[Rfam]
RNA: permuted transfer-messenger RNA
Organism: Pontivivens ytuae
RNA sequence: GGUGAUAAACGCGCGUGUAAUAAGCGGAUCGGACCCGGGGGCGGUACCCGGCGGCUCCACCAACCUCCCCACCGGGGGACCAUGGGGCCGAAACAGUAUCGACGGACGUCUAACGACGUUGCUUUCACUCGGUGAGGUACCACCGUUAUCGGUCCGAACAGUAUAGUUGCAAAUGACAACCAUGCUCCGGUGGCCGUUGCCGCGUAA
Numbered sequence: 001g002g003u004g005a006u007a008a009a010c011g012c013g014c015g016u017g018u019a020a021u022a023a024g025c026g027g028a029u030c031g032g033a034c035c036c037g038g039g040g041g042c043g044g045u046a047c048c049c050g051g052c053g054g055c056u057c058c059a060c061c062a063a064c065c066u067c068c069c070c071a072c073c074g075g076g077g078g079a080c081c082a083u084g085g086g087g088c089c090g091a092a093a094c095a096g097u098a099u100c101g102a103c104g105g106a107c108g109u110c111u112a113a114c115g116a117c118g119u120u121g122c123u124u125u126c127a128c129u130c131g132g133u134g135a136g137g138u139a140c141c142a143c144c145g146u147u148a149u150c151g152g153u154c155c156g157a158a159c160a161g162u163a164u165a166g167u168u169g170c171a172a173a174u175g176a177c178a179a180c181c182a183u184g185c186u187c188c189g190g191u192g193g194c195c196g197u198u199g200c201c202g203c204g205u206a207a
Base pairs, nucleotide, nucleotide: 001129002128003127004126005125013119014118015117016116025108026107029105030104031103035051036050037049038048039047052090053089054088055087056086057085058084130145131144132143133142